Rfam assigns this 86-nucleotide sequence from Solanum tuberosum to the family "MIR8024 microRNA precursor family". The organism belongs to Solanum, within Eukaryota. Rfam 15.1 lists 661 matches to the family in 8 species. Rfam links the family to the GO terms miRNA-mediated post-transcriptional gene silencing and RISC complex. Pairs were carried over by alignment from the consensus structure, which was predicted with RNAalifold. The match comes from Rfam's covariance-model search (82 bits).
RNA sequence: UUGGAGGAUUUGAGGACUUCAACUUACAAACUUGACAAAUUUGAAGACAUCAACUUGCAUAUUUUGAGGAAUUGAAGACUUCAACU
Numbered sequence: 001u002u003g004g005a006g007g008a009u010u011u012g013a014g015g016a017c018u019u020c021a022a023c024u025u026a027c028a029a030a031c032u033u034g035a036c037a038a039a040u041u042u043g044a045a046g047a048c049a050u051c052a053a054c055u056u057g058c059a060u061a062u063u064u065u066g067a068g069g070a071a072u073u074g075a076a077g078a079c080u081u082c083a084a085c086u
Stems, first nucleotide, its partner, number of pairs: 001084006009076005017068003021064001025059001027057002032053004